[Rfam]
RNA sequence: UAAAAAGAGGGAGUGCAGAGGGGAUUUCCCUCUGCCGUUAAGGAGGGUGCUCAGGCUGCUAUGCAGCCGCCGAAGGGAAC
Numbered sequence: 001u002a003a004a005a006a007g008a009g010g011g012a013g014u015g016c017a018g019a020g021g022g023g024a025u026u027u028c029c030c031u032c033u034g035c036c037g038u039u040a041a042g043g044a045g046g047g048u049g050c051u052c053a054g055g056c057u058g059c060u061a062u063g064c065a066g067c068c069g070c071c072g073a074a075g076g077g078a079a080c
Base pairs, nucleotide, nucleotide: 015035016034017033018032019031020030021029022028054068055067056066057065058064

Background:
A member of the RNA family "Clostridiales-2 RNA" from Sinanaerobacter chloroacetimidivorans, 80 nucleotides long. It scores 89 bits against the family's covariance model. By type it is a small RNA. Rfam 15.1 lists 285 matches to the family in 26 species.